[Rfam]
RNA sequence: AACCCCGCGCCGAACUGUCACCGUAGGGUGUGCGUUCCUUCACUGGAUAGGCCGGGGUUUUCC
Number, nucleotide and partner (000 for none) at each position: 001a059002a058003c057004c056005c055006c054007g053008c000009g052010c051011c050012g000013a000014a000015c000016u034017g033018u032019c030020a029021c028022c027023g000024u000025a000026g000027g022028g021029u020030g019031u000032g018033c017034g016035u000036u047037c046038c045039u000040u000041c000042a000043c000044u000045g038046g037047a036048u000049a000050g011051g010052c009053c007054g006055g005056g004057g003058u002059u001060u000061u000062c000063c000
The record is a 63-nucleotide sequence from Opitutus terrae, which matches "DUF3800-IX RNA" in Rfam. Pairs were carried over by alignment from the consensus structure, which is taken from published work. The source organism's lineage runs through Bacteria, Verrucomicrobiota, Opitutaceae, Opitutus and Opitutus terrae. Rfam's curators write: Actinobacteria, Firmicutes (1 example), Nitrospirae, Proteobacteria, Verrucomicrobia (1 example).